The record is a 34-nucleotide RNA from Ligilactobacillus equi, which matches "L31-Firmicutes ribosomal protein leader" in Rfam. It is one of the family's seed sequences. Clan: Ribosomal Protein L31 Leader clan. It is annotated as a cis-regulatory leader.
RNA sequence: CUCUGGUUCAGCAAAUGAAUCAGGGCACAAGGAG
Numbered sequence: 001c002u003c004u005g006g007u008u009c010a011g012c013a014a015a016u017g018a019a020u021c022a023g024g025g026c027a028c029a030a031g032g033a034g
Stems, first nucleotide, its partner, number of pairs: 001025010